[Rfam]
RNA sequence: CAGGCAGAGCCUUGCGUGUGUUCUUAUUGGUAGUGUGGCUGGUAAUCUAUCAUAAGACACACGCGGCUCUCUCUG
Numbered sequence: 001c002a003g004g005c006a007g008a009g010c011c012u013u014g015c016g017u018g019u020g021u022u023c024u025u026a027u028u029g030g031u032a033g034u035g036u037g038g039c040u041g042g043u044a045a046u047c048u049a050u051c052a053u054a055a056g057a058c059a060c061a062c063g064c065g066g067c068u069c070u071c072u073c074u075g
Base pairs, nucleotide, nucleotide: 001075002074003073004072006070008068009067010066011065014064015063016062019059020058022057023056024055028052029051030050031049032048
Annotation:
The record is a 75-nucleotide RNA from Manduca sexta, which matches "mir-970 microRNA precursor family" in Rfam. The sequence is in the family's curated seed alignment. Pairs were carried over by alignment from the consensus structure, which was predicted with RNAalifold. Rfam 15.1 lists 75 matches to the family in 74 species.